[Rfam]
RNA sequence: CCACUGUUUCCAAAAUAACGCACAUGUAUCGACACAUGCUUCGGGUGCCUGGAUGGGUUGGAGUAUGGGAUGCAUGGAGGUUUAAC
Number, nucleotide and partner (000 for none) at each position: 001c000002c000003a000004c000005u000006g000007u000008u000009u000010c000011c000012a000013a000014a000015a000016u000017a000018a000019c000020g000021c000022a000023c076024a075025u074026g073027u072028a071029u070030c069031g000032a000033c000034a000035c067036a066037u065038g064039c063040u062041u061042c060043g059044g000045g000046u000047g058048c057049c056050u055051g000052g000053a000054u000055g050056g049057g048058u047059u043060g042061g041062a040063g039064u038065a037066u036067g035068g000069g030070a029071u028072g027073c026074a025075u024076g023077g000078a000079g000080g000081u000082u000083u000084a000085a000086c000
A member of the RNA family "t44 RNA" from Hahella sp. CCB-MM4, 86 nucleotides long. The match comes from Rfam's covariance-model search (66 bits). Taxonomically the source falls in Hahella (Bacteria, Pseudomonadota, Gammaproteobacteria, Hahellaceae). This family consists of a number of bacterial RNA genes of between 135 and 170 bases in length.